Shown here is an 81-nucleotide RNA from Cotesia typhae, a member of the family "mir-31 microRNA precursor family".
The literature on the family includes a 2003 paper in Dev Cell by Aravin et al., "The small RNA profile during Drosophila melanogaster development".
The base pairs follow the family's consensus structure, which was predicted with RNAalifold.

RNA sequence: GAACGUCUAGGAGGCAAGAUGUCGGCAUAGCUGAUGUUUUGAAUAAUUCGGCUAUGUCACAUCGAGCCAACUGUACGUUUA
Dot-bracket structure: ....((.(((..(((..((((..((((((((...................)))))))).))))..)))..))).)).....

Annotation:
Its Rfam clan is "mir-31 microRNA precursor family". Lineage of the source: Eukaryota > Altocrustacea > Allotriocarida > Hexapoda > Cotesia.